[Rfam]
The record is a 43-nucleotide RNA from Ewingella americana, which matches "nuoG RNA" in Rfam. The family's consensus secondary structure is taken from published work.
RNA sequence: GAAUUUUUGAUUAACGCCCGCUGAAAGGUGGGCCACGUGGAAG
Numbered sequence: 001g002a003a004u005u006u007u008u009g010a011u012u013a014a015c016g017c018c019c020g021c022u023g024a025a026a027g028g029u030g031g032g033c034c035a036c037g038u039g040g041a042a043g
Stems, first nucleotide, its partner, number of pairs: 016033007
The match comes from Rfam's covariance-model search (49 bits).